[Rfam]
A member of the RNA family "c-di-AMP riboswitch aptamer (ydaO/yuaA leader)" from Actinoplanes friuliensis, 139 nucleotides long. Pairs were carried over by alignment from the consensus structure. A search with the family's covariance model found it, with a score of 72 bits. This family represents a conserved RNA structure found upstream of the ydaO and yuaA genes in Bacillus subtilis and related genes in other bacteria.
RNA sequence: CCCCCAGGGCCGCCACUUCCGCCAUGACGAACCGGGGAACCACCGAAGCAGCACCGGGGUGAAUCCGCGUCCGCGCGGUAGGGCAUUCUUCCGAGCCCGAAUCCGACAGCUAACCCGGUAAGCGGCCACAAGCGGAAGA
Numbered sequence: 001c002c003c004c005c006a007g008g009g010c011c012g013c014c015a016c017u018u019c020c021g022c023c024a025u026g027a028c029g030a031a032c033c034g035g036g037g038a039a040c041c042a043c044c045g046a047a048g049c050a051g052c053a054c055c056g057g058g059g060u061g062a063a064u065c066c067g068c069g070u071c072c073g074c075g076c077g078g079u080a081g082g083g084c085a086u087u088c089u090u091c092c093g094a095g096c097c098c099g100a101a102u103c104c105g106a107c108a109g110c111u112a113a114c115c116c117g118g119u120a121a122g123c124g125g126c127c128a129c130a131a132g133c134g135g136a137a138g139a
Stems, first nucleotide, its partner, number of pairs: 001029001031119006041056001057104003065078004081098004

Lineage of the source: Bacteria > Actinomycetota > Micromonosporales > Actinoplanes > Actinoplanes friuliensis.